[Rfam]
RNA sequence: ACCCUGCUAGCUCAAUUGGCAGAGCGUGAGACUCUUAAUCUCAAGGUUGGGGGUUCGAGACCCCCGUGGGGUG
Numbered sequence: 001a002c003c004c005u006g007c008u009a010g011c012u013c014a015a016u017u018g019g020c021a022g023a024g025c026g027u028g029a030g031a032c033u034c035u036u037a038a039u040c041u042c043a044a045g046g047u048u049g050g051g052g053g054u055u056c057g058a059g060a061c062c063c064c065c066g067u068g069g070g071g072u073g
Base pairs, nucleotide, nucleotide: 001072002071003070004069005068006067007066010025011024012023013022027043028042029041030040031039049065050064051063052062053061
RNA: tRNA
Organism: Tortispora caseinolytica